[Rfam]
The record is a 73-nucleotide RNA sequence from Callorhinchus milii, which matches "Small nucleolar RNA SNORD47" in Rfam. A search with the family's covariance model found it, with a score of 62 bits.

RNA sequence: AACCAAUGAUGACAGUGAUUCUGCCAUAUGAGUCCGAAUGAUUCUACAGAAAGUUCCAUUUUAUACUGAGGUU
Numbered sequence: 001a002a003c004c005a006a007u008g009a010u011g012a013c014a015g016u017g018a019u020u021c022u023g024c025c026a027u028a029u030g031a032g033u034c035c036g037a038a039u040g041a042u043u044c045u046a047c048a049g050a051a052a053g054u055u056c057c058a059u060u061u062u063a064u065a066c067u068g069a070g071g072u073u
Stems, first nucleotide, its partner, number of pairs: 001073004
NCBI's taxonomy places the organism under Eukaryota, Metazoa, Gnathostomata, Callorhinchidae, Callorhinchus.